[Rfam]
Background:
A member of the RNA family "MIR159 microRNA precursor family" from Salix brachista, 190 nucleotides long.

RNA sequence: GACUAUGGAUUGGAGCUCCUUGAAGUCCAAUAGAAGUUCCUGCAGGGGAGAUCGAGCUGCUGAGCUAUGGAUCCCACAGCCCUAUCAUUAUCAGUUAUAAAGAUGGGUCUGCGGCUUGCAUAUCUCAGGAGCUUUACUACCUAUUGUUAGAUCUUGUUUUGGAUUGAAGGGAGCUCUAUACAUUUGAUCU
Numbered sequence: 001g002a003c004u005a006u007g008g009a010u011u012g013g014a015g016c017u018c019c020u021u022g023a024a025g026u027c028c029a030a031u032a033g034a035a036g037u038u039c040c041u042g043c044a045g046g047g048g049a050g051a052u053c054g055a056g057c058u059g060c061u062g063a064g065c066u067a068u069g070g071a072u073c074c075c076a077c078a079g080c081c082c083u084a085u086c087a088u089u090a091u092c093a094g095u096u097a098u099a100a101a102g103a104u105g106g107g108u109c110u111g112c113g114g115c116u117u118g119c120a121u122a123u124c125u126c127a128g129g130a131g132c133u134u135u136a137c138u139a140c141c142u143a144u145u146g147u148u149a150g151a152u153c154u155u156g157u158u159u160u161g162g163a164u165u166g167a168a169g170g171g172a173g174c175u176c177u178a179u180a181c182a183u184u185u186g187a188u189c190u
Base pairs, nucleotide, nucleotide: 013176014175015174016173017172018171019170020169024165025164026163027162028161029160036153057131058130060128061127062126066122067121068120069119074114